[Rfam]
RNA sequence: AAGGGUUGGAUAGUCCAUGUGUUCCCAUUGGCGUCAAUUCACUGGGGUUUUUCCCCGUUAGUGAGGUUCCGAUGCCUGAUGGGUCCAAUCUUUCUUAAAAACUUCGCAUGGUAGAUUGAUAUUAUUGGGAAGAUGUAUCUCCAGCUGUUGACUAGAGGGGGGAGCCUUUUUCUUCAACCUCGACUUAUCAAAAUCUGAUACAGUUGGUCAUAAUUCUUGCCACAAUU
Numbered sequence: 001a002a003g004g005g006u007u008g009g010a011u012a013g014u015c016c017a018u019g020u021g022u023u024c025c026c027a028u029u030g031g032c033g034u035c036a037a038u039u040c041a042c043u044g045g046g047g048u049u050u051u052u053c054c055c056c057g058u059u060a061g062u063g064a065g066g067u068u069c070c071g072a073u074g075c076c077u078g079a080u081g082g083g084u085c086c087a088a089u090c091u092u093u094c095u096u097a098a099a100a101a102c103u104u105c106g107c108a109u110g111g112u113a114g115a116u117u118g119a120u121a122u123u124a125u126u127g128g129g130a131a132g133a134u135g136u137a138u139c140u141c142c143a144g145c146u147g148u149u150g151a152c153u154a155g156a157g158g159g160g161g162g163a164g165c166c167u168u169u170u171u172c173u174u175c176a177a178c179c180u181c182g183a184c185u186u187a188u189c190a191a192a193a194u195c196u197g198a199u200a201c202a203g204u205u206g207g208u209c210a211u212a213a214u215u216c217u218u219g220c221c222a223c224a225a226u227u
Stems, first nucleotide, its partner, number of pairs: 015111007024083008032074004036067001038065002049060001127221002130218001132216002141207008155181004161175004